[Rfam]
RNA sequence: GCCAUUGGUUGCUCAGUAUUCAGUGUAGAGUCUGUCUGAUAUGAAUGCACAGCUACAUCUGAUUACUGGGUCACUUAUGACAUAU
Numbered sequence: 001g002c003c004a005u006u007g008g009u010u011g012c013u014c015a016g017u018a019u020u021c022a023g024u025g026u027a028g029a030g031u032c033u034g035u036c037u038g039a040u041a042u043g044a045a046u047g048c049a050c051a052g053c054u055a056c057a058u059c060u061g062a063u064u065a066c067u068g069g070g071u072c073a074c075u076u077a078u079g080a081c082a083u084a085u
Stems, first nucleotide, its partner, number of pairs: 013069006020062003023058006032052004
A member of the RNA family "mir-221 microRNA precursor family" from Polypterus senegalus, 85 nucleotides long. Rfam links the family to the GO terms RISC complex and miRNA-mediated post-transcriptional gene silencing. Lineage of the source: Eukaryota > Gnathostomata > Actinopterygii > Polypteriformes > Polypterus. For this family Rfam cites "MicroRNA profile of Marek's disease virus-transformed T-cell line MSB-1: predominance of virus-encoded microRNAs" (Yao et al., J Virol, 2008).